[Rfam]
RNA: mir-77 microRNA precursor family
RNA sequence: GAGCCAAUAAUUUGGAUGGCUGUGCCUUGAAGAAAUACAGUUAGUGUCAUUUCAUCAGGCCAUAGCUGUCCAAAUUGUUAGGUUCG
Number, nucleotide and partner (000 for none) at each position: 001g000002a000003g000004c000005c000006a000007a000008u077009a076010a075011u074012u073013u072014g071015g070016a069017u068018g067019g066020c065021u064022g063023u062024g061025c000026c059027u058028u057029g056030a055031a000032g053033a052034a051035a050036u049037a000038c000039a000040g000041u000042u000043a000044g000045u000046g000047u000048c000049a036050u035051u034052u033053c032054a000055u030056c029057a028058g027059g026060c000061c024062a023063u022064a021065g020066c019067u018068g017069u016070c015071c014072a013073a012074a011075u010076u009077g008078u000079u000080a000081g000082g000083u000084u000085c000086g000